[Rfam]
A member of the RNA family "U5 spliceosomal RNA" from Rhinopithecus roxellana, 120 nucleotides long. Rfam's curators write: U5 RNA is a component of both types of known spliceosome. NCBI's taxonomy places the organism under Eukaryota, Chordata, Amniota, Cercopithecidae, Rhinopithecus. By type it is a spliceosomal small nuclear RNA. Rfam 15.1 lists 28,527 matches to the family in 2,489 species. The base pairs follow the family's consensus structure, which is taken from published work.
RNA sequence: AUGCUCUGGUUUCUCUUCAUAACGAAUAAGUUUUUCGCCUUUUACUGAAGAUUUCCGUGGGGAGGAACUAAUUGUGAGUUUGUUACUGAAUUUUUUUGGAUGUCCUGCUCAGGCGGGGCU
Numbered sequence: 001a002u003g004c005u006c007u008g009g010u011u012u013c014u015c016u017u018c019a020u021a022a023c024g025a026a027u028a029a030g031u032u033u034u035u036c037g038c039c040u041u042u043u044a045c046u047g048a049a050g051a052u053u054u055c056c057g058u059g060g061g062g063a064g065g066a067a068c069u070a071a072u073u074g075u076g077a078g079u080u081u082g083u084u085a086c087u088g089a090a091u092u093u094u095u096u097u098g099g100a101u102g103u104c105c106u107g108c109u110c111a112g113g114c115g116g117g118g119c120u
Base pairs, nucleotide, nucleotide: 003079004078005077006076009068010067011066012065013064014063015062016061017060018059019058028054029053030052031051032050033049034048035047100120102119103118104117105116106115107114